[Rfam]
RNA sequence: GCCGCGCCUAGCCCGAGGGGGCGAAAAGCCGGACAUCCUGCCGGCUUGGCGCGGCCUUCUACAAGGG
Numbered sequence: 001g002c003c004g005c006g007c008c009u010a011g012c013c014c015g016a017g018g019g020g021g022c023g024a025a026a027a028g029c030c031g032g033a034c035a036u037c038c039u040g041c042c043g044g045c046u047u048g049g050c051g052c053g054g055c056c057u058u059c060u061a062c063a064a065g066g067g
Stems, first nucleotide, its partner, number of pairs: 001055008011022004028045005036067004
RNA: int-alpA RNA
Organism: Immundisolibacter cernigliae